A member of the RNA family "Small nucleolar RNA SNORD47" from Tinamus guttatus, 76 nucleotides long. The family's consensus secondary structure was predicted with ILM. It is annotated as a C/D-box small nucleolar RNA. Taxonomically the source falls in Tinamus (Eukaryota, Saurischia, Coelurosauria, Tinamiformes). The family has 20 seed sequences and 755 matches in Rfam 15.1. For this family Rfam cites "RNomics: an experimental approach that identifies 201 candidates for novel, small, non-messenger RNAs in mouse" (Huttenhofer et al., EMBO J, 2001). A search with the family's covariance model found it, with a score of 58 bits.
[Rfam]
RNA sequence: AGCCACUGAUGAAAUUUGAUUCUGCCAGAUGAAUUACUGUGAUAACACCUAUUUCCGUUCCACUAUUUCUGAGGCU
Dot-bracket structure: ((((....................................................................))))